[Rfam]
RNA sequence: UGAUGUUGGGUAGAGUUGUAUGGAAUGAAAGAUGGGAAUUUUCUAUUUUGGAUUCUGUUCAUUCAAUUUUCCCUCUUUCGUUCCAUACAUCGUCUAACCAACGUAGU
Number, nucleotide and partner (000 for none) at each position: 001u000002g000003a000004u000005g102006u101007u100008g099009g098010g000011u096012a095013g094014a093015g091016u000017u089018g088019u087020a086021u085022g084023g083024a082025a081026u080027g079028a078029a077030a076031g075032a074033u000034g073035g072036g071037a070038a069039u000040u000041u000042u000043c000044u000045a000046u000047u000048u000049u000050g060051g059052a058053u057054u000055c000056u000057g053058u052059u051060c050061a000062u000063u000064c000065a000066a000067u000068u000069u038070u037071c036072c035073c034074u032075c031076u030077u029078u028079c027080g026081u025082u024083c023084c022085a021086u020087a019088c018089a017090u000091c015092g000093u014094c013095u012096a011097a000098c009099c008100a007101a006102c005103g000104u000105a000106g000107u000
A member of the RNA family "MIR1507 microRNA precursor family" from Trifolium pratense, 107 nucleotides long. Rfam links the family to the GO terms miRNA-mediated post-transcriptional gene silencing and RISC complex. Rfam 15.1 lists 30 matches to the family in 18 species. A search with the family's covariance model found it, with a score of 103 bits. The source organism's lineage runs through Eukaryota, rosids, Papilionoideae, Trifolieae and Trifolium.